Annotation:
Rfam assigns this 130-nucleotide sequence from Drosophila gunungcola to the family "Small nucleolar RNA psi28S-3316". Rfam describes the family as follows. psi28S-3316 is a member of the H/ACA class of snoRNA. This family is responsible for guiding the modification of uridine 3316 in Drosophila 28S rRNA to pseudouridine.
RNA sequence: UGCACCUAAAAGCGUUUUCUUGCCAGCCUGUUAAAUGCUCUUGAAAAUCGUAGAUGUGUGCCAAAAAAAUCCUCACAAUAGCAUGUGAUUUUAGUUUGCUAUCUCUAAUCCGUUUACUUUGUGUACAGUC
Numbered sequence: 001u002g003c004a005c006c007u008a009a010a011a012g013c014g015u016u017u018u019c020u021u022g023c024c025a026g027c028c029u030g031u032u033a034a035a036u037g038c039u040c041u042u043g044a045a046a047a048u049c050g051u052a053g054a055u056g057u058g059u060g061c062c063a064a065a066a067a068a069a070u071c072c073u074c075a076c077a078a079u080a081g082c083a084u085g086u087g088a089u090u091u092u093a094g095u096u097u098g099c100u101a102u103c104u105c106u107a108a109u110c111c112g113u114u115u116a117c118u119u120u121g122u123g124u125a126c127a128g129u130c
Stems, first nucleotide, its partner, number of pairs: 002061004006056001012051003015047005022038002025036001074123005083115001085113003088109003093104002096101001
The family's consensus secondary structure was predicted with RNAfold. Lineage of the source: Eukaryota > Pancrustacea > Panorpida > Schizophora > elegans subgroup (in: flies). The family's RNA type in Rfam is H/ACA-box small nucleolar RNA. A search with the family's covariance model found it, with a score of 121 bits. Its family is annotated with RNA processing and nucleolus in the Gene Ontology.